[Rfam]
This 56-nucleotide RNA from Anaeromyxobacter sp. Fw109-5 belongs to the Rfam family "nhaA-I RNA". The family's RNA type in Rfam is riboswitch. The sequence is in the family's curated seed alignment.
RNA sequence: GGGUGUGACGGCCAAGUGGCCGCUCGCAGGCGAUCGGGAUGGUCGGGCCACCAUCC
Numbered sequence: 001g002g003g004u005g006u007g008a009c010g011g012c013c014a015a016g017u018g019g020c021c022g023c024u025c026g027c028a029g030g031c032g033a034u035c036g037g038g039a040u041g042g043u044c045g046g047g048c049c050a051c052c053a054u055c056c
Base pairs, nucleotide, nucleotide: 005027006026007025008024009022010021011020037056038055039054040053041052042051043050
From the family's description: Acidobacteria, Alphaproteobacteria, Betaproteobacteria and Gammaproteobacteria, Verrucomicrobia, cand. division NC10.